[Rfam]
Nucleotides: 112
Stems, first nucleotide, its partner, number of pairs: 011102001014098006023089011
Number, partner (000 for none) and nucleotide at each position: 001000c002000u003000u004000a005000c006000a007000g008000a009000g010000a011102u012000c013000u014098u015097u016096g017095g018094c019093a020000u021000u022000c023089u024088g025087u026086c027085c028084a029083c030082c031081u032080c033079c034000c035000c036000u037000a038000c039000c040000u041000a042000u043000g044000u045000a046000u047000a048000u049000g050000u051000g052000u053000a054000u055000u056000a057000u058000c059000u060000a061000c062000g063000u064000u065000g066000u067000g068000u069000u070000u071000u072000g073000u074000g075000a076000g077000g078000g079033g080032g081031a082030g083029g084028u085027g086026g087025g088024c089023a090000u091000a092000c093019u094018g095017c096016c097015a098014a099000c100000a101000g102011a103000g104000a105000u106000c107000u108000g109000u110000u111000a112000g